This 67-nucleotide RNA from Pipistrellus kuhlii belongs to the Rfam family "mir-9256 microRNA precursor family". NCBI's taxonomy places the organism under Eukaryota, Craniata, Teleostomi, Yangochiroptera, Pipistrellus. Its family is annotated with miRNA-mediated post-transcriptional gene silencing and RISC complex in the Gene Ontology.
[Rfam]
RNA sequence: AUAUACACUGAGUGGCCAGGUUAUUAUGAUCUCCAAACGCAUAAUAAUCUGGCUACUCAGUGUAUAU
Numbered sequence: 001a002u003a004u005a006c007a008c009u010g011a012g013u014g015g016c017c018a019g020g021u022u023a024u025u026a027u028g029a030u031c032u033c034c035a036a037a038c039g040c041a042u043a044a045u046a047a048u049c050u051g052g053c054u055a056c057u058c059a060g061u062g063u064a065u066a067u
Base pairs, nucleotide, nucleotide: 004064005063006062007061008060009059010058011057012056013055014054015053016052017051019049020048021047022046023045024044025043026042027041028040
A search with the family's covariance model found it, with a score of 85 bits.